[Rfam]
RNA sequence: GGCCUCCCUCUGUGGGGCGAUCGAUCUGGGAGCCCCAUGAUUGAUUGUCUCACAGAGGGAGGCC
Number, nucleotide and partner (000 for none) at each position: 001g064002g063003c062004c061005u060006c059007c058008c057009u056010c055011u054012g053013u052014g051015g050016g049017g048018c047019g046020a045021u044022c043023g042024a041025u040026c039027u000028g000029g036030g035031a000032g000033c000034c000035c030036c029037a000038u000039g026040a025041u024042u023043g022044a021045u020046u019047g018048u017049c016050u015051c014052a013053c012054a011055g010056a009057g008058g007059g006060a005061g004062g003063c002064c001

Shown here is a 64-nucleotide RNA from Myotis myotis, a member of the family "mir-9242 microRNA precursor family".
Its family is annotated with RISC complex and miRNA-mediated post-transcriptional gene silencing in the Gene Ontology.
The match comes from Rfam's covariance-model search (72 bits).
Lineage of the source: Eukaryota > Metazoa > Amniota > Chiroptera > Myotis.
The family's consensus secondary structure was predicted with RNAalifold.